Overview:
Rfam assigns this 106-nucleotide RNA sequence from Acer yangbiense to the family "Plant small nucleolar RNA R71". Rfam links the family to the GO terms nucleolus and RNA processing. The family's RNA type in Rfam is C/D-box small nucleolar RNA.
RNA sequence: AAGUCGUGGUGUGGGCAUUGAGCUAGAAGAAGCUUGAACCUCUCCCAUGACUCAUAGAAUGGUUCUCCUUCUUCCUCUUGGAAGUUUGCAAUCCUUCCCUUUAUUU
Numbered sequence: 001a002a003g004u005c006g007u008g009g010u011g012u013g014g015g016c017a018u019u020g021a022g023c024u025a026g027a028a029g030a031a032g033c034u035u036g037a038a039c040c041u042c043u044c045c046c047a048u049g050a051c052u053c054a055u056a057g058a059a060u061g062g063u064u065c066u067c068c069u070u071c072u073u074c075c076u077c078u079u080g081g082a083a084g085u086u087u088g089c090a091a092u093c094c095u096u097c098c099c100u101u102u103a104u105u106u
Stems, first nucleotide, its partner, number of pairs: 001106001003104002006100001057074002